This 494-nucleotide part of an RNA from Eleutherodactylus coqui belongs to the Rfam family "Eukaryotic large subunit ribosomal RNA". The organism belongs to Eleutherodactylus, within Eukaryota. The family is grouped with related families in Rfam's "LSU clan". Pairs were carried over by alignment from the consensus structure, which is taken from published work.
RNA sequence: GCCGGUGCGGCCAGGAGACGAGGCCCGGGCGGCUCCGGCCCCUGCAGGGCGCACUUCCUCCGCGGUGGUGCGCCGCGACCGGCUCCCGGCCGUCUGGGAAGGCCUCGAGGGUCUGCAAGGUAACCGGGAGGGGACCCGGACUGGUAAUGGGCGCCUCGCGCGUCCCCCUCCCCCUCCCGGUGUUCCAACAUCCGCCCGGCGUUACAGCCCCCUAUUUGGCAAGAGCAGUCGCCAUCGCCCGGGGCCGAGGGAGACGACCGCCUCCGCGCCCUUCUCCCGAACCGCUCCACCCCUCCGUUCCCCUCCCGCGGGAAGCGGGGUCCCGGGGAUGGGAGGACGGGGCCCCCCGCUCCCGGCGCAGAUGCCCGACCGGGGCAGACUGUCCUCAGUGCGCCCCGACAGUGCCGCGCUGCCAAGGCGGGAGGGGAGACGGCGUAGGCCCCCUCUCGCGGGGGUGGCCGAAACCGGGGCCACCAGGGGUCAGCGGUGAUGUC
Numbered sequence: 001g002c003c004g005g006u007g008c009g010g011c012c013a014g015g016a017g018a019c020g021a022g023g024c025c026c027g028g029g030c031g032g033c034u035c036c037g038g039c040c041c042c043u044g045c046a047g048g049g050c051g052c053a054c055u056u057c058c059u060c061c062g063c064g065g066u067g068g069u070g071c072g073c074c075g076c077g078a079c080c081g082g083c084u085c086c087c088g089g090c091c092g093u094c095u096g097g098g099a100a101g102g103c104c105u106c107g108a109g110g111g112u113c114u115g116c117a118a119g120g121u122a123a124c125c126g127g128g129a130g131g132g133g134a135c136c137c138g139g140a141c142u143g144g145u146a147a148u149g150g151g152c153g154c155c156u157c158g159c160g161c162g163u164c165c166c167c168c169u170c171c172c173c174c175u176c177c178c179g180g181u182g183u184u185c186c187a188a189c190a191u192c193c194g195c196c197c198g199g200c201g202u203u204a205c206a207g208c209c210c211c212c213u214a215u216u217u218g219g220c221a222a223g224a225g226c227a228g229u230c231g232c233c234a235u236c237g238c239c240c241g242g243g244g245c246c247g248a249g250g251g252a253g254a255c256g257a258c259c260g261c262c263u264c265c266g267c268g269c270c271c272u273u274c275u276c277c278c279g280a281a282c283c284g285c286u287c288c289a290c291c292c293c294u295c296c297g298u299u300c301c302c303c304u305c306c307c308g309c310g311g312g313a314a315g316c317g318g319g320g321u322c323c324c325g326g327g328g329a330u331g332g333g334a335g336g337a338c339g340g341g342g343c344c345c346c347c348c349g350c351u352c353c354c355g356g357c358g359c360a361g362a363u364g365c366c367c368g369a370c371c372g373g374g375g376c377a378g379a380c381u382g383u384c385c386u387c388a389g390u391g392c393g394c395c396c397c398g399a400c401a402g403u404g405c406c407g408c409g410c411u412g413c414c415a416a417g418g419c420g421g422g423a424g425g426g427g428a429g430a431c432g433g434c435g436u437a438g439g440c441c442c443c444c445u446c447u448c449g450c451g452g453g454g455g456u457g458g459c460c461g462a463a464a465c466c467g468g469g470g471c472c473a474c475c476a477g478g479g480g481u482c483a484g485c486g487g488u489g490a491u492g493u494c
Base pairs, nucleotide, nucleotide: 001488002487003486004485006483007482